[Rfam]
RNA sequence: AAUAAUUUUAUUUUUCGUUUUUCCGUGUCCAAUGUUUGACCAUUCGUCUUAUUUAAAAAAUUUAUGUAAAAACCUAAAAAAAUUAGUCACGUAUAAAGUACUAUUCAUAUUUCAUCUAGUAAUAAUAAAAAUAUUAAUCGUAAAAAAUUUCAAAUAAGAUGAAUGGUCAAACGUUAGACACGGAAAAAC
Numbered sequence: 001a002a003u004a005a006u007u008u009u010a011u012u013u014u015u016c017g018u019u020u021u022u023c024c025g026u027g028u029c030c031a032a033u034g035u036u037u038g039a040c041c042a043u044u045c046g047u048c049u050u051a052u053u054u055a056a057a058a059a060a061u062u063u064a065u066g067u068a069a070a071a072a073c074c075u076a077a078a079a080a081a082a083u084u085a086g087u088c089a090c091g092u093a094u095a096a097a098g099u100a101c102u103a104u105u106c107a108u109a110u111u112u113c114a115u116c117u118a119g120u121a122a123u124a125a126u127a128a129a130a131a132u133a134u135u136a137a138u139c140g141u142a143a144a145a146a147a148u149u150u151c152a153a154a155u156a157a158g159a160u161g162a163a164u165g166g167u168c169a170a171a172c173g174u175u176a177g178a179c180a181c182g183g184a185a186a187a188a189c
Stems, first nucleotide, its partner, number of pairs: 028178002031175003035171018

Rfam assigns this 189-nucleotide RNA from Oryza brachyantha to the family "MIR812 microRNA precursor family". Taxonomically the source falls in Oryza (Eukaryota, Embryophyta, commelinids, Poaceae). A search with the family's covariance model found it, with a score of 94 bits. The base pairs follow the family's consensus structure, which was predicted with RNAalifold.